Background: A member of the RNA family "SAM riboswitch aptamer (S box leader)" from Tengunoibacter tsumagoiensis, 120 nucleotides long. The SAM riboswitch is found upstream of a number of genes which code for proteins involved in methionine or cysteine biosynthesis in Gram-positive bacteria.
RNA sequence: UACUCAUCCAGAGAGGUGGAGGGAUACGGCCCUAUGAAGCCCGGCAACCCGCUUUCCAAUGUUGUUAAGCAGGGUGCCAAUUCCGGUGAAAUAUGUGAGAACUGUUUCACAAGAUGAGGG
Number, nucleotide and partner (000 for none) at each position: 001u120002a000003c118004u117005c116006a115007u114008c113009c000010a000011g000012a000013g042014a000015g041016g040017u039018g000019g000020a000021g032022g031023g030024a000025u000026a000027c085028g084029g083030c023031c022032c021033u000034a000035u000036g000037a000038a000039g017040c016041c015042c013043g078044g077045c076046a075047a000048c074049c073050c000051g070052c069053u068054u067055u000056c000057c000058a000059a000060u000061g000062u000063u000064g000065u000066u000067a054068a053069g052070c051071a000072g000073g049074g048075u046076g045077c044078c043079a000080a000081u000082u112083c029084c028085g027086g000087u109088g108089a107090a106091a105092u104093a000094u000095g000096u000097g000098a000099g000100a000101a000102c000103u000104g092105u091106u090107u089108c088109a087110c000111a000112a082113g008114a007115u006116g005117a004118g003119g000120g001